Annotation:
Rfam assigns this 378-nucleotide sequence from Desulfobotulus alkaliphilus to the family "Bacterial RNase P class A". Its family is annotated with tRNA processing, dimeric ribonuclease P complex and ribonuclease P activity in the Gene Ontology. A search with the family's covariance model found it, with a score of 338 bits. The family's RNA type in Rfam is ribozyme. Clan: RNaseP clan.

RNA sequence: AGAGUAUGCCAGACGAUCGCCGGGAUACGAUAAAGUAUCCGGGAGGAAAGUCCGAACACCACAGGGCAGGAUGCUCCAUAACGUGGAGUCGCAGUGAUGCGAAGGCAAGUGCAACAGAGAGCAGACCGCCUUCUGCUGCAGGCAGAAGGUAAGGGUGAAAGGGUGCGGUAAGAGCGCACCAGUGUUCCGGGCGACCGGAGCAGCUGGGUAAACCCCAUCCGGUGCAAGACCAAAUAGGGAAGCGUAAGGGUGGCCCGCCCUGCUUCCGGGUAGGUCGCUUGAGACCGUCGGUAACGGCGGUCCUAGAUGAAUGGUCGUCACUCUGUUUUCGGGUAACCGGGGCAGGGAACAGAAUUCGGCUUACGGCUUACUCUGACC
Numbered sequence: 001a002g003a004g005u006a007u008g009c010c011a012g013a014c015g016a017u018c019g020c021c022g023g024g025a026u027a028c029g030a031u032a033a034a035g036u037a038u039c040c041g042g043g044a045g046g047a048a049a050g051u052c053c054g055a056a057c058a059c060c061a062c063a064g065g066g067c068a069g070g071a072u073g074c075u076c077c078a079u080a081a082c083g084u085g086g087a088g089u090c091g092c093a094g095u096g097a098u099g100c101g102a103a104g105g106c107a108a109g110u111g112c113a114a115c116a117g118a119g120a121g122c123a124g125a126c127c128g129c130c131u132u133c134u135g136c137u138g139c140a141g142g143c144a145g146a147a148g149g150u151a152a153g154g155g156u157g158a159a160a161g162g163g164u165g166c167g168g169u170a171a172g173a174g175c176g177c178a179c180c181a182g183u184g185u186u187c188c189g190g191g192c193g194a195c196c197g198g199a200g201c202a203g204c205u206g207g208g209u210a211a212a213c214c215c216c217a218u219c220c221g222g223u224g225c226a227a228g229a230c231c232a233a234a235u236a237g238g239g240a241a242g243c244g245u246a247a248g249g250g251u252g253g254c255c256c257g258c259c260c261u262g263c264u265u266c267c268g269g270g271u272a273g274g275u276c277g278c279u280u281g282a283g284a285c286c287g288u289c290g291g292u293a294a295c296g297g298c299g300g301u302c303c304u305a306g307a308u309g310a311a312u313g314g315u316c317g318u319c320a321c322u323c324u325g326u327u328u329u330c331g332g333g334u335a336a337c338c339g340g341g342g343c344a345g346g347g348a349a350c351a352g353a354a355u356u357c358g359g360c361u362u363a364c365g366g367c368u369u370a371c372u373c374u375g376a377c378c
Base pairs, nucleotide, nucleotide: 001374002373003372004371005370006369008367009366010365012319013318014317015316016315017314018313020043021042023040024039025038026037027036028035048362049361050360052359053358054357055356056355057224058223059222060221064256065255066254067253069220070219071218072217073216074088075087076086077085078084089103090101091100092099093098104215105214109213110212111209112208126154127153128150129149130148131147132146133145134144135143136142162180163179164178165177166176167175182204183202184201185200186199187198188197189196190195228276229275230274231273238267239266240265241264242263243262247261248260249259250258251257283302284301285300286299287298288297289296290295